[Rfam]
RNA sequence: UAUAUAUGGGGUGUGCAGAGGGGAUUCCCCUUUGCCGUAUUCAAGAAGGUCCUCAGGAACCUGCAUUGCAGGCGUCGAAGGAAAC
Numbered sequence: 001u002a003u004a005u006a007u008g009g010g011g012u013g014u015g016c017a018g019a020g021g022g023g024a025u026u027c028c029c030c031u032u033u034g035c036c037g038u039a040u041u042c043a044a045g046a047a048g049g050u051c052c053u054c055a056g057g058a059a060c061c062u063g064c065a066u067u068g069c070a071g072g073c074g075u076c077g078a079a080g081g082a083a084a085c
Stems, first nucleotide, its partner, number of pairs: 015035008056073001060072004
Shown here is an 85-nucleotide RNA from Anaerosolibacter carboniphilus, a member of the family "Clostridiales-2 RNA". NCBI's taxonomy places the organism under Bacteria, Bacillota, Clostridia, Peptostreptococcales, Anaerosolibacter. Pairs were carried over by alignment from the consensus structure, which is taken from published work. The family's RNA type in Rfam is small RNA.